[Rfam]
RNA sequence: CGCGCCGACCCGCUCAAUCGCCGCAUGGCGAACCGGGGACCCAAUCUGCACCUGGGGUGAAUCCGCGAUUGUCGCGGUAGGGCGUACUUCCCGCCCGAAUCCGUCAGCUAACCCGGUAGGCGGCAUCGGAAGGAGUC
Numbered sequence: 001c002g003c004g005c006c007g008a009c010c011c012g013c014u015c016a017a018u019c020g021c022c023g024c025a026u027g028g029c030g031a032a033c034c035g036g037g038g039a040c041c042c043a044a045u046c047u048g049c050a051c052c053u054g055g056g057g058u059g060a061a062u063c064c065g066c067g068a069u070u071g072u073c074g075c076g077g078u079a080g081g082g083c084g085u086a087c088u089u090c091c092c093g094c095c096c097g098a099a100u101c102c103g104u105c106a107g108c109u110a111a112c113c114c115g116g117u118a119g120g121c122g123g124c125a126u127c128g129g130a131a132g133g134a135g136u137c
Stems, first nucleotide, its partner, number of pairs: 003122004011030004032117006042054002055102003063077004080096004

Shown here is a 137-nucleotide RNA from Micromonospora sp. WMMC415, a member of the family "c-di-AMP riboswitch aptamer (ydaO/yuaA leader)". The match comes from Rfam's covariance-model search (91 bits). NCBI's taxonomy places the organism under Bacteria, Bacillati, Actinomycetota, Micromonosporaceae, Micromonospora.